[Rfam]
RNA sequence: GGAGUUGCUCGUACACCACUGUAGUGCCCCGGAGCGGCGUUUGGGUAACCAAGGGUCGUGAGUUUCGUGGGUGCAAAACCGCAGGCCGCAGCGCAAGCGAACCUAGAGGUAGCCUCGUCACUUAAUCGAAGAAGCCGACCCUGUGGUCAGAAGGGGAAGGCCGCCGCCGGUGGGAAGAGACAACGAGAGCGUCCCAUCGAUUCUUCCGGGGUAGCAGGGGU
Numbered sequence: 001g002g003a004g005u006u007g008c009u010c011g012u013a014c015a016c017c018a019c020u021g022u023a024g025u026g027c028c029c030c031g032g033a034g035c036g037g038c039g040u041u042u043g044g045g046u047a048a049c050c051a052a053g054g055g056u057c058g059u060g061a062g063u064u065u066c067g068u069g070g071g072u073g074c075a076a077a078a079c080c081g082c083a084g085g086c087c088g089c090a091g092c093g094c095a096a097g098c099g100a101a102c103c104u105a106g107a108g109g110u111a112g113c114c115u116c117g118u119c120a121c122u123u124a125a126u127c128g129a130a131g132a133a134g135c136c137g138a139c140c141c142u143g144u145g146g147u148c149a150g151a152a153g154g155g156g157a158a159g160g161c162c163g164c165c166g167c168c169g170g171u172g173g174g175a176a177g178a179g180a181c182a183a184c185g186a187g188a189g190c191g192u193c194c195c196a197u198c199g200a201u202u203c204u205u206c207c208g209g210g211g212u213a214g215c216a217g218g219g220g221u
Stems, first nucleotide, its partner, number of pairs: 001017002004014001005188002008185001025073001028071002030067002032064002034059005040053005109215001110213001112212006128206006134161003139155004168199005174193002177190001